[Rfam]
RNA sequence: CCGCAUGCCGGCGAUGACGUCCGCCUUCAAAUGCCGACCAGGCUGAUGACGUCUGCAUGAGG
Numbered sequence: 001c002c003g004c005a006u007g008c009c010g011g012c013g014a015u016g017a018c019g020u021c022c023g024c025c026u027u028c029a030a031a032u033g034c035c036g037a038c039c040a041g042g043c044u045g046a047u048g049a050c051g052u053c054u055g056c057a058u059g060a061g062g
Stems, first nucleotide, its partner, number of pairs: 010025004016053006033043003

Annotation:
Fluoride riboswitch aptamer (crcB RNA motif): a 62-nucleotide RNA. The family has 289 seed sequences and 2,293 matches in Rfam 15.1.